The family of this 100-nucleotide RNA sequence from Echeneis naucrates is "Small nucleolar RNA SNORD16". The family's consensus secondary structure was predicted with PFOLD. Clan: SNORD16 clan. For this family Rfam cites "A novel small nucleolar RNA (U16) is encoded inside a ribosomal protein intron and originates by processing of the pre-mRNA" (Fragapane et al., EMBO J, 1993).
RNA sequence: UGCCUUGAUGGUGUAAUUUGCGUCUGACCUAGUGAACAGUGACAGUUGCCUGCUGUCUUUAAGCUGUCACAUGGUAAUGAUGUGUGUUAAAUUCUGAGCA
Numbered sequence: 001u002g003c004c005u006u007g008a009u010g011g012u013g014u015a016a017u018u019u020g021c022g023u024c025u026g027a028c029c030u031a032g033u034g035a036a037c038a039g040u041g042a043c044a045g046u047u048g049c050c051u052g053c054u055g056u057c058u059u060u061a062a063g064c065u066g067u068c069a070c071a072u073g074g075u076a077a078u079g080a081u082g083u084g085u086g087u088u089a090a091a092u093u094c095u096g097a098g099c100a
Stems, first nucleotide, its partner, number of pairs: 001100003021082004032070003039064002041057005